[Rfam]
RNA sequence: GCACGUUAUCUUUCCCAUUCCUUACUGUGCAGUGGGAGCCUGGGGAAGCGUGGUGCUAACAGGAAAGCAGAGUAAAUCCAGACAAGUGGUUCUUCACUGAGCAAUUGUCUCUACACCUCUGCAACAGUU
Numbered sequence: 001g002c003a004c005g006u007u008a009u010c011u012u013u014c015c016c017a018u019u020c021c022u023u024a025c026u027g028u029g030c031a032g033u034g035g036g037a038g039c040c041u042g043g044g045g046a047a048g049c050g051u052g053g054u055g056c057u058a059a060c061a062g063g064a065a066a067g068c069a070g071a072g073u074a075a076a077u078c079c080a081g082a083c084a085a086g087u088g089g090u091u092c093u094u095c096a097c098u099g100a101g102c103a104a105u106u107g108u109c110u111c112u113a114c115a116c117c118u119c120u121g122c123a124a125c126a127g128u129u
Base pairs, nucleotide, nucleotide: 001056002055003054004053012046013045014044015043016042017041020038067122068121069120070119071118072117080110081109082108083107084106085105087103093101094100095099
Small nucleolar RNA SNORA55: a 129-nucleotide RNA sequence from Odontophorus gujanensis. Rfam links the family to the GO terms RNA processing and nucleolus. It scores 88 bits against the family's covariance model. ACA55 is a member of the H/ACA class of snoRNA that guide the sites of modification of uridines to pseudouridines.